[Rfam]
Record summary: A member of the RNA family "let-7 microRNA precursor family" from Hymenochirus boettgeri, 79 nucleotides long.
RNA sequence: CCAGGUUGAGGUAGUAGGUUGUAUGGUUUAGAAUUACACCCUGGGAGUAGUUAACUGUACAACCUUCUAGCUUUCCUUG
Numbered sequence: 001c002c003a004g005g006u007u008g009a010g011g012u013a014g015u016a017g018g019u020u021g022u023a024u025g026g027u028u029u030a031g032a033a034u035u036a037c038a039c040c041c042u043g044g045g046a047g048u049a050g051u052u053a054a055c056u057g058u059a060c061a062a063c064c065u066u067c068u069a070g071c072u073u074u075c076c077u078u079g
Stems, first nucleotide, its partner, number of pairs: 001079001003077003008073003012069003016065012040050001
Description: Rfam 15.1 lists 8,694 matches to the family in 797 species. Clan: let-7 microRNA precursor clan.